[Rfam]
Rfam assigns this 43-nucleotide RNA from Pelistega europaea to the family "abiF RNA". Rfam classes the family as a small RNA. Actinobacteria, Bacteroidetes, Clostridia, Proteobacteria, one Clostridia phage.
RNA sequence: CUCGCCAUGCCUCUUAUCUUUGAUAAUGCACAAAUCGGCGAGU
Numbered sequence: 001c002u003c004g005c006c007a008u009g010c011c012u013c014u015u016a017u018c019u020u021u022g023a024u025a026a027u028g029c030a031c032a033a034a035u036c037g038g039c040g041a042g043u
Stems, first nucleotide, its partner, number of pairs: 001042006008030003